RNA: mir-1421 microRNA precursor family
Organism: Ornithorhynchus anatinus
Nucleotides: 074
Stems, first nucleotide, its partner, number of pairs: 003071003007067001010064004015059007023051002027047001
Number, partner (000 for none) and nucleotide at each position: 001000c002000a003071g004070u005069g006000u007067g008000a009000g010064g011063a012062g013061g014000g015059c016058a017057c018056a019055u020054g021053u022000g023051g024050u025000a026000c027047a028000g029000u030000g031000u032000g033000a034000g035000c036000g037000u038000g039000g040000a041000a042000u043000a044000u045000g046000c047027u048000u049000c050024a051023u052000c053021a054020c055019a056018u057017g058016u059015g060000a061013c062012c063011u064010c065000a066000c067007u068000u069005c070004a071003c072000c073000g074000u